MIR7486 microRNA precursor family: an 87-nucleotide sequence from Gossypium raimondii. The base pairs follow the family's consensus structure, which was predicted with RNAalifold. Lineage of the source: Eukaryota > Viridiplantae > Mesangiospermae > malvids > Gossypium.
RNA sequence: CACGUCAGUGCGCUUUGCUUACGUGGACACAAAUCGCGCCUACGAGGCCGCGAUUUGUGUCCACGUAAGCAAAGCGCGCUGACGUGG
Numbered sequence: 001c002a003c004g005u006c007a008g009u010g011c012g013c014u015u016u017g018c019u020u021a022c023g024u025g026g027a028c029a030c031a032a033a034u035c036g037c038g039c040c041u042a043c044g045a046g047g048c049c050g051c052g053a054u055u056u057g058u059g060u061c062c063a064c065g066u067a068a069g070c071a072a073a074g075c076g077c078g079c080u081g082a083c084g085u086g087g
Base pairs, nucleotide, nucleotide: 001086002085003084004083005082006081007080008079009078010077011076012075013074014073015072016071017070018069019068020067021066023064024063025062026061027060028059029058030057031056032055033054034053035052036051037050038049040047041046